[Rfam]
The family of this 136-nucleotide RNA from Otolemur garnettii is "Small nucleolar RNA SNORA58". Rfam links the family to the GO terms nucleolus and RNA processing. The family's consensus secondary structure was predicted with PFOLD.

RNA sequence: AGGCAUACCAGUAGACCUUGCCUGACUCAGCUCGUGGCCAGGCAGGGGGGACAGUGUAUGCAAGAAUAAUUUGGAGUUUGUGCCAGCUCUAGCCAGCUUAAUCAGUGGCUGGGUAAACUGCAGUACUCCAACAUUC
Numbered sequence: 001a002g003g004c005a006u007a008c009c010a011g012u013a014g015a016c017c018u019u020g021c022c023u024g025a026c027u028c029a030g031c032u033c034g035u036g037g038c039c040a041g042g043c044a045g046g047g048g049g050g051a052c053a054g055u056g057u058a059u060g061c062a063a064g065a066a067u068a069a070u071u072u073g074g075a076g077u078u079u080g081u082g083c084c085a086g087c088u089c090u091a092g093c094c095a096g097c098u099u100a101a102u103c104a105g106u107g108g109c110u111g112g113g114u115a116a117a118c119u120g121c122a123g124u125a126c127u128c129c130a131a132c133a134u135u136c
Stems, first nucleotide, its partner, number of pairs: 003061006016047009073129004078125001081122003093112005